Burkholderia RNA 11: a 122-nucleotide RNA sequence from Xylophilus rhododendri.
The base pairs follow the family's consensus structure, which was predicted with RNAfold.
Lineage of the source: Bacteria > Pseudomonadota > Betaproteobacteria > Burkholderiales > Xylophilus.
It is annotated as a small RNA.
Rfam links the family to the GO term protein binding.
Co-purified with Hfq, expression confirmed by Northern blot. Predicted target marZ. Overlaps coding sequence.
Nucleotides: 122
Stems, first nucleotide, its partner, number of pairs: 010049003017042003021038002025034002051121005059113002062110001063105001067099002071095002076092002078088001080087002
Number, partner (000 for none) and nucleotide at each position: 001000g002000c003000a004000a005000c006000c007000u008000c009000a010049a011048g012047c013000u014000c015000g016000c017042g018041g019040c020000g021038g022037g023000c024000a025034a026033c027000c028000c029000g030000g031000u032000g033026g034025u035000g036000u037022u038021c039000c040019g041018c042017u043000c044000g045000c046000u047012g048011c049010u050000g051121g052120g053119c054118a055117u056000c057000a058000g059113c060112u061000g062110g063105a064000u065000g066000u067099g068098g069000u070000u071095c072094u073000u074000c075000g076092g077091c078088g079000c080087g081086g082000u083000c084000u085000u086081c087080c088078u089000c090000a091077g092076c093000c094072a095071g096000u097000u098068c099067c100000c101000c102000a103000g104000c105063u106000u107000c108000g109000c110062c111000a112060a113059g114000g115000a116000g117055g118054u119053g120052c121051u122000g